[Rfam]
RNA sequence: AUACUUACCUGGACGGGGUCAAUGGGCGAUCAAGAAGGUCCAUGGUCUAGAGAGUUGGCCUCCAUCGCACUUAGGAGGUGCACCUGUCUAAGGUCUCCCCAAGUGGGAGAGCCUACGUCAUAAUUUGUGACAGUGGGGGCUUGCGUCCGCGCAGCCCCUAU
Numbered sequence: 001a002u003a004c005u006u007a008c009c010u011g012g013a014c015g016g017g018g019u020c021a022a023u024g025g026g027c028g029a030u031c032a033a034g035a036a037g038g039u040c041c042a043u044g045g046u047c048u049a050g051a052g053a054g055u056u057g058g059c060c061u062c063c064a065u066c067g068c069a070c071u072u073a074g075g076a077g078g079u080g081c082a083c084c085u086g087u088c089u090a091a092g093g094u095c096u097c098c099c100c101a102a103g104u105g106g107g108a109g110a111g112c113c114u115a116c117g118u119c120a121u122a123a124u125u126u127g128u129g130a131c132a133g134u135g136g137g138g139g140c141u142u143g144c145g146u147c148c149g150c151g152c153a154g155c156c157c158c159u160a161u
Stems, first nucleotide, its partner, number of pairs: 012119004016048006023042005049089003054085001056082002059078005091114003094110003098106002134160005142153004
Source information: U1 spliceosomal RNA: a 161-nucleotide RNA from Ricinus communis. NCBI's taxonomy places the organism under Eukaryota, Embryophyta, Gunneridae, Acalyphoideae, Ricinus. The family's RNA type in Rfam is spliceosomal small nuclear RNA. A search with the family's covariance model found it, with a score of 132 bits.